[Rfam]
RNA sequence: GUCGAAAAGGGCACCUAGGGGUGCGGCGACUCAUAGUAGGGUCGACGGCAUAGGAGAAAG
Numbered sequence: 001g002u003c004g005a006a007a008a009g010g011g012c013a014c015c016u017a018g019g020g021g022u023g024c025g026g027c028g029a030c031u032c033a034u035a036g037u038a039g040g041g042u043c044g045a046c047g048g049c050a051u052a053g054g055a056g057a058a059a060g
Base pairs, nucleotide, nucleotide: 011024012023013022014021015020027044028043029042030041031040032039

This 60-nucleotide RNA sequence belongs to the Rfam family "Actino-ugpB RNA".